This 65-nucleotide RNA from Aneurinibacillus migulanus belongs to the Rfam family "Bacillaceae-1 RNA". Pairs were carried over by alignment from the consensus structure, which is taken from published work. The organism belongs to Aneurinibacillus, within Bacteria. Rfam classes the family as a small RNA. It scores 50 bits against the family's covariance model.

[Rfam]
RNA sequence: UAUAAAGGAUCAUCGGCUAACGUCGCAACUUCCUGUUGCAAUGCCGAUGUUUGCCCAUCCGUGGG
Numbered sequence: 001u002a003u004a005a006a007g008g009a010u011c012a013u014c015g016g017c018u019a020a021c022g023u024c025g026c027a028a029c030u031u032c033c034u035g036u037u038g039c040a041a042u043g044c045c046g047a048u049g050u051u052u053g054c055c056c057a058u059c060c061g062u063g064g065g
Base pairs, nucleotide, nucleotide: 011049012048013047014046015045016044017043025039026038027037028036029035054065055064056063